This 140-nucleotide RNA sequence from beta proteobacterium AAP65 belongs to the Rfam family "Glycine riboswitch aptamer".
RNA sequence: CCUCACCUCACUGGAGAGAGGCCGCCAGCUCACACAGGCGGCCCACCGAAGGGGCAAGGCCCAGGGGUCGUGAGUUCAACAUCUGAACCUGCGAUGCCCUGGCGCUGAAUCUCUCAGGUAAAGCGGACAGCGAGGGCCCG
Numbered sequence: 001c002c003u004c005a006c007c008u009c010a011c012u013g014g015a016g017a018g019a020g021g022c023c024g025c026c027a028g029c030u031c032a033c034a035c036a037g038g039c040g041g042c043c044c045a046c047c048g049a050a051g052g053g054g055c056a057a058g059g060c061c062c063a064g065g066g067g068u069c070g071u072g073a074g075u076u077c078a079a080c081a082u083c084u085g086a087a088c089c090u091g092c093g094a095u096g097c098c099c100u101g102g103c104g105c106u107g108a109a110u111c112u113c114u115c116a117g118g119u120a121a122a123g124c125g126g127a128c129a130g131c132g133a134g135g136g137c138c139c140g
Stems, first nucleotide, its partner, number of pairs: 006135004011130003020043007045119003048115002052113003058106002